[Rfam]
This 170-nucleotide RNA sequence from Clostridiales bacterium KLE1615 belongs to the Rfam family "Clostridiales-1 RNA".
RNA sequence: UACUUCCAAGGUGAAAAACUGAGCGAUGUUUCCUGCUUGCAGGAAAACAGCGCUCAGUUUGGAACCUGCCCUUUCAUGAGGAUGGCAGCGAUUUACGAAGUAAAUCCGCGAAUCCGAAUGAAAGCAGGAUUGCGAGAGCGGCGAAGCUGCGCAGCAAUCCGUGGGAAGUA
Numbered sequence: 001u002a003c004u005u006c007c008a009a010g011g012u013g014a015a016a017a018a019c020u021g022a023g024c025g026a027u028g029u030u031u032c033c034u035g036c037u038u039g040c041a042g043g044a045a046a047a048c049a050g051c052g053c054u055c056a057g058u059u060u061g062g063a064a065c066c067u068g069c070c071c072u073u074u075c076a077u078g079a080g081g082a083u084g085g086c087a088g089c090g091a092u093u094u095a096c097g098a099a100g101u102a103a104a105u106c107c108g109c110g111a112a113u114c115c116g117a118a119u120g121a122a123a124g125c126a127g128g129a130u131u132g133c134g135a136g137a138g139c140g141g142c143g144a145a146g147c148u149g150c151g152c153a154g155c156a157a158u159c160c161g162u163g164g165g166a167a168g169u170a
Stems, first nucleotide, its partner, number of pairs: 001170007010066003016060010027049004031044005071124007080115004088109002090106007127160007138150004

Rfam 15.1 lists 1,172 matches to the family in 137 species. Lineage of the source: Bacteria > Bacillati > Bacillota > Clostridia > Eubacteriales.